[Rfam]
RNA sequence: ACAAAGGCUCUUUUAAGAGCCACCCACUUUUCUUAAAGAGGCAACU
Dot-bracket structure: .....((((((....)))))).........................